Overview: Rfam assigns this 166-nucleotide RNA from Streptomyces avermitilis to the family "c-di-AMP riboswitch aptamer (ydaO/yuaA leader)".

[Rfam]
RNA sequence: AUCAAUCCACCACUCACUCACGCACGGCAGGAGCGGGGAAACCAGGUAAGUCGCCGUCCGGUCACCACGCCGGAGCGGCUCGGGGUGAAGCCGCGUCCUCGGACGCGGCCGGGCAUCUCCAGCCCGAACCCGACAGCUCACCUCGCAGGCGCCGGAGAGGAAAUUC
Numbered sequence: 001a002u003c004a005a006u007c008c009a010c011c012a013c014u015c016a017c018u019c020a021c022g023c024a025c026g027g028c029a030g031g032a033g034c035g036g037g038g039a040a041a042c043c044a045g046g047u048a049a050g051u052c053g054c055c056g057u058c059c060g061g062u063c064a065c066c067a068c069g070c071c072g073g074a075g076c077g078g079c080u081c082g083g084g085g086u087g088a089a090g091c092c093g094c095g096u097c098c099u100c101g102g103a104c105g106c107g108g109c110c111g112g113g114c115a116u117c118u119c120c121a122g123c124c125c126g127a128a129c130c131c132g133a134c135a136g137c138u139c140a141c142c143u144c145g146c147a148g149g150c151g152c153c154g155g156a157g158a159g160g161a162a163a164u165u166c
Base pairs, nucleotide, nucleotide: 011151013149014148018032019031033146034145035144036143037142038141043082083131084130085129091108092107093106094105111125112124113123114122
The organism belongs to Streptomyces avermitilis, within Bacteria. About the family: This family represents a conserved RNA structure found upstream of the ydaO and yuaA genes in Bacillus subtilis and related genes in other bacteria. The base pairs follow the family's consensus structure. A reference for the family is Barrick et al. (2004), "New RNA motifs suggest an expanded scope for riboswitches in bacterial genetic control", Proc Natl Acad Sci U S A.